Record summary
This 75-nucleotide RNA from Streptomyces bingchenggensis belongs to the Rfam family "ASpks TB sRNA". Taxonomically the source falls in Streptomyces bingchenggensis (Bacteria, Actinomycetota, Actinomycetes, Streptomycetaceae).
RNA sequence: CUUCAGCGACCCCAGCCACAGCGGCUGCCCCUCCGGCCGACCCCGCCCGUACGUCGCCAGCAGCGCCUGAGCCUC
Numbered sequence: 001c002u003u004c005a006g007c008g009a010c011c012c013c014a015g016c017c018a019c020a021g022c023g024g025c026u027g028c029c030c031c032u033c034c035g036g037c038c039g040a041c042c043c044c045g046c047c048c049g050u051a052c053g054u055c056g057c058c059a060g061c062a063g064c065g066c067c068u069g070a071g072c073c074u075c
Stems, first nucleotide, its partner, number of pairs: 014026004031071003038065002043060001045058001047056001049054001
The family's RNA type in Rfam is antisense RNA.
For this family Rfam cites "Identification of small RNAs in Mycobacterium tuberculosis" (Arnvig and Young, Mol Microbiol, 2009).
A search with the family's covariance model found it, with a score of 82 bits.